[Rfam]
mir-147 microRNA precursor family: a 77-nucleotide RNA sequence from Neotoma lepida.
The base pairs follow the family's consensus structure, which was predicted with RNAalifold.
Rfam 15.1 lists 757 matches to the family in 593 species.
RNA sequence: UAUGAAUCUAGUGGAAACACUUGCGCACAGACUAGAUCUUGAUACCAGUGUGCGGAAAUGCUUCUGCUACGUUCGUA
Numbered sequence: 001u002a003u004g005a006a007u008c009u010a011g012u013g014g015a016a017a018c019a020c021u022u023g024c025g026c027a028c029a030g031a032c033u034a035g036a037u038c039u040u041g042a043u044a045c046c047a048g049u050g051u052g053c054g055g056a057a058a059u060g061c062u063u064c065u066g067c068u069a070c071g072u073u074c075g076u077a
Stems, first nucleotide, its partner, number of pairs: 001077002004074004009069008018060002021057002024054006032048002